[Rfam]
RNA sequence: GACGAUUAUAUUGUCCUGUCACAGCAGUAAUGUCCUCUACUAUGCUGCUGUUUCCGGACAUUUGUAUUGUU
Numbered sequence: 001g002a003c004g005a006u007u008a009u010a011u012u013g014u015c016c017u018g019u020c021a022c023a024g025c026a027g028u029a030a031u032g033u034c035c036u037c038u039a040c041u042a043u044g045c046u047g048c049u050g051u052u053u054c055c056g057g058a059c060a061u062u063u064g065u066a067u068u069g070u071u
Base pairs, nucleotide, nucleotide: 003069004068005067006066012060013059014058015057016056018054022050023049024048025047026046027045028044029043
RNA: mir-1000 microRNA precursor family
Organism: Chironomus riparius